[Rfam]
RNA sequence: UUACAAGAGACAAUUUACUUUUUAGAUACAUCAAAUAAUUUAUGUAUUUGGUCAAUAAACCAAAUACAUAAAUUAUUUGAUGUAUCUAAAAAGUAAAUUGUCUCUUGUAA
Numbered sequence: 001u002u003a004c005a006a007g008a009g010a011c012a013a014u015u016u017a018c019u020u021u022u023u024a025g026a027u028a029c030a031u032c033a034a035a036u037a038a039u040u041u042a043u044g045u046a047u048u049u050g051g052u053c054a055a056u057a058a059a060c061c062a063a064a065u066a067c068a069u070a071a072a073u074u075a076u077u078u079g080a081u082g083u084a085u086c087u088a089a090a091a092a093g094u095a096a097a098u099u100g101u102c103u104c105u106u107g108u109a110a
Base pairs, nucleotide, nucleotide: 002109003108004107005106006105007104009102010101011100012099013098015096016095017094018093019092020091021090022089023088024087025086027084028083029082030081031080032079033078034077035076036075037074038073039072040071041070042069043068044067049062050061051060052059
The record is a 110-nucleotide RNA from Medicago truncatula, which matches "MIR2593 microRNA precursor family" in Rfam. The organism belongs to Medicago, within Eukaryota. Rfam links the family to the GO terms miRNA-mediated post-transcriptional gene silencing and RISC complex.